Shown here is a 118-nucleotide sequence from Actinospica durhamensis, a member of the family "SAM (S-adenosyl methionine) riboswitch aptamer".

RNA sequence: AGGCAACGAGCACCGGCGCAGAACCCUGGUUUGCCGGUCGGCGACCCUUCACCGCCGUGUGCGGGGUGACCAGGAGAAGCCCCGGCCGUGGGAGGCCCUCCCCCGGCACGAGCAGAGU
Numbered sequence: 001a002g003g004c005a006a007c008g009a010g011c012a013c014c015g016g017c018g019c020a021g022a023a024c025c026c027u028g029g030u031u032u033g034c035c036g037g038u039c040g041g042c043g044a045c046c047c048u049u050c051a052c053c054g055c056c057g058u059g060u061g062c063g064g065g066g067u068g069a070c071c072a073g074g075a076g077a078a079g080c081c082c083c084g085g086c087c088g089u090g091g092g093a094g095g096c097c098c099u100c101c102c103c104c105g106g107c108a109c110g111a112g113c114a115g116a117g118u
Base pairs, nucleotide, nucleotide: 002081003080004079010039012038013037014036015035016034017033022031023030040070042068045066046065047064049061050059051058052057085107086106087105088104090102091101092100093099094098
On this family, see Weinberg et al., RNA 2008: "The aptamer core of SAM-IV riboswitches mimics the ligand-binding site of SAM-I riboswitches". From the family's description: SAM-IV is a mRNA element that regulates gene expression via direct sensing of S-adenosylmethionine (SAM or AdoMet). The organism belongs to Actinospica, within Bacteria.